[Rfam]
Shown here is a 135-nucleotide RNA sequence from Penicillium atrosanguineum, a member of the family "U4 spliceosomal RNA". It scores 101 bits against the family's covariance model. Rfam's curators write: U4 small nuclear RNA (U4 snRNA) is a component of the major U2-dependent spliceosome.
RNA sequence: AUCCUAGUGCACGGGUUUUACACGUAUCAGUGAGGAAUUAUCCGAGAUCGUGUUUUUGCUAGUUGAAAACUACCAAACUGACCACUCCAGUUGGUCCUUCGGGAUCGUCUGGGAAUUUUUGAACAAAUUAAGUUG
Numbered sequence: 001a002u003c004c005u006a007g008u009g010c011a012c013g014g015g016u017u018u019u020a021c022a023c024g025u026a027u028c029a030g031u032g033a034g035g036a037a038u039u040a041u042c043c044g045a046g047a048u049c050g051u052g053u054u055u056u057u058g059c060u061a062g063u064u065g066a067a068a069a070c071u072a073c074c075a076a077a078c079u080g081a082c083c084a085c086u087c088c089a090g091u092u093g094g095u096c097c098u099u100c101g102g103g104a105u106c107g108u109c110u111g112g113g114a115a116u117u118u119u120u121g122a123a124c125a126a127a128u129u130a131a132g133u134u135g
Base pairs, nucleotide, nucleotide: 020053021052022051023050024049026048027047028046034043035042036041086113087112088111089110090109092107093106094105095104096103097102
On this family, see Zwieb, Nucleic Acids Res 1997: "The uRNA database".